[Rfam]
RNA sequence: AUUUUUUUUUUCGAUAUAGAACACUCAUGUCGAUAAAAUGGUUUGAACCCUUU
Numbered sequence: 001a002u003u004u005u006u007u008u009u010u011u012c013g014a015u016a017u018a019g020a021a022c023a024c025u026c027a028u029g030u031c032g033a034u035a036a037a038a039u040g041g042u043u044u045g046a047a048c049c050c051u052u053u
Base pairs, nucleotide, nucleotide: 011033012032013031014030015029016028017027
Overview:
Shown here is a 53-nucleotide sequence from Ceratonia siliqua, a member of the family "Plastid-atpF group II-D1 intron". The literature on the family includes a 2023 paper in Plant Commun by Richter et al., "Retrograde signaling in plants: A critical review focusing on the GUN pathway and beyond". The family's consensus secondary structure was predicted with LocARNA. About the family: Plastid atpF is a non-coding RNA (ncRNA) recognised in plastids. It has been reported in the intron group II-D1 region of ATP synthase (atpF) genes. The family has 49 seed sequences and 1,372 matches in Rfam 15.1. The organism belongs to Ceratonia, within Eukaryota. It is one of the family's seed sequences.